The family of this 364-nucleotide RNA from Enterobacteriaceae endosymbiont of Macroplea appendiculata is "Bacterial RNase P class A". The organism belongs to Enterobacteriaceae, within Bacteria.
RNA sequence: UGAGUUAAUGCAAACAGUCGCUUUUAUUUUUAAUAAAAGAGGAAAGUCCGGACUCCAAAGGGUAAUGGUACCAGAUAACUUCUGGGAAGUGUAAACUUACGAAUAGUGCAACAGAAAAUAUACCGCCAUAAUAAUGAUAUGUAGUAAUUAUAAUGAUGGUAAGGGUGAAAAGGUAUGGUAAGAGCAUACCGAUAUAUUAGUAAUAAUAUAUGUCUAUGUAAACUCUACCAGGAGCAAGGCUAAAUAAAGAUUUGUAUUGACCCGUACAAAAAAUCUGGGUAAGCCGCAAGAAAUAAUAAGUAAUUAUUAUUCUAGAUGAAUGACUGUUAAAAAACAGAAUCCGGCUUAUGAAUUAACUUAUCAA
Numbered sequence: 001u002g003a004g005u006u007a008a009u010g011c012a013a014a015c016a017g018u019c020g021c022u023u024u025u026a027u028u029u030u031u032a033a034u035a036a037a038a039g040a041g042g043a044a045a046g047u048c049c050g051g052a053c054u055c056c057a058a059a060g061g062g063u064a065a066u067g068g069u070a071c072c073a074g075a076u077a078a079c080u081u082c083u084g085g086g087a088a089g090u091g092u093a094a095a096c097u098u099a100c101g102a103a104u105a106g107u108g109c110a111a112c113a114g115a116a117a118a119u120a121u122a123c124c125g126c127c128a129u130a131a132u133a134a135u136g137a138u139a140u141g142u143a144g145u146a147a148u149u150a151u152a153a154u155g156a157u158g159g160u161a162a163g164g165g166u167g168a169a170a171a172g173g174u175a176u177g178g179u180a181a182g183a184g185c186a187u188a189c190c191g192a193u194a195u196a197u198u199a200g201u202a203a204u205a206a207u208a209u210a211u212g213u214c215u216a217u218g219u220a221a222a223c224u225c226u227a228c229c230a231g232g233a234g235c236a237a238g239g240c241u242a243a244a245u246a247a248a249g250a251u252u253u254g255u256a257u258u259g260a261c262c263c264g265u266a267c268a269a270a271a272a273a274u275c276u277g278g279g280u281a282a283g284c285c286g287c288a289a290g291a292a293a294u295a296a297u298a299a300g301u302a303a304u305u306a307u308u309a310u311u312c313u314a315g316a317u318g319a320a321u322g323a324c325u326g327u328u329a330a331a332a333a334a335c336a337g338a339a340u341c342c343g344g345c346u347u348a349u350g351a352a353u354u355a356a357c358u359u360a361u362c363a364a
Stems, first nucleotide, its partner, number of pairs: 001360009012349001013328007021039008044347003048344005053234004061265001066230005071085005086100001087098004101225002106223002108219003123164002125160005131154002172190006191214001192211008238285004248276006257269003292311008